Insect-Specific Flavivirus 3' UTR repeats Ra and Rb elements: a 100-nucleotide sequence from Quang Binh virus. Rfam classes the family as a cis-regulatory element. It is one of the family's seed sequences. 3' UTRs in insect specific flavivirus families present three to four repeats of conserved element Ra and Rb. The base pairs follow the family's consensus structure, which was predicted with LocARNA. The family is grouped with related families in Rfam's "Insect-Specific Flavivirus 3' UTR repeats Ra and Rb elements".
RNA sequence: CGCAAGGAGGGACGUGUGCAUCACGUUUCUGGGAGUUAACGGCUCUCCGGCCCCAGUUCCUAGGUCCAGGUAGGAUCCCGUGGCGCUGUGAGGGCGCUAA
Numbered sequence: 001c002g003c004a005a006g007g008a009g010g011g012a013c014g015u016g017u018g019c020a021u022c023a024c025g026u027u028u029c030u031g032g033g034a035g036u037u038a039a040c041g042g043c044u045c046u047c048c049g050g051c052c053c054c055a056g057u058u059c060c061u062a063g064g065u066c067c068a069g070g071u072a073g074g075a076u077c078c079c080g081u082g083g084c085g086c087u088g089u090g091a092g093g094g095c096g097c098u099a100a
Base pairs, nucleotide, nucleotide: 002057003056006053007052008030009029010028011027012026015023016022031047032046033045034044035043036042063077064076065075066074067073081099082098083097084096085095086094087093